Record summary: The family of this 53-nucleotide sequence from Gossypium australe is "Plastid-psbl-rps4 3UTR RNA". Plastid psbl-rps4-psbC is a non-coding RNA (ncRNA) present in plastids. It is compose of two short stem-loops in tandem in the terminal 3 prime untranslate region (3UTR) mostly in psbl and rps4 seed plants genes. On this family, see Zhelyazkova et al., Nucleic Acids Res 2012: "Protein-mediated protection as the predominant mechanism for defining processed mRNA termini in land plant chloroplasts". A search with the family's covariance model found it, with a score of 68 bits. Rfam classes the family as a cis-regulatory element. Rfam 15.1 lists 1,631 matches to the family in 422 species.
[Rfam]
RNA sequence: CGAAGAGAAAGGGAUUCGAACCCUCGGUACGAAUAACUCGCACAACAGAUUAG
Number, nucleotide and partner (000 for none) at each position: 001c000002g000003a000004a000005g000006a000007g000008a000009a000010a024011g023012g022013g021014a000015u000016u000017c000018g000019a000020a000021c013022c012023c011024u010025c000026g000027g043028u042029a000030c040031g039032a038033a000034u000035a000036a000037c000038u032039c031040g030041c000042a028043c027044a000045a000046c000047a000048g000049a000050u000051u000052a000053g000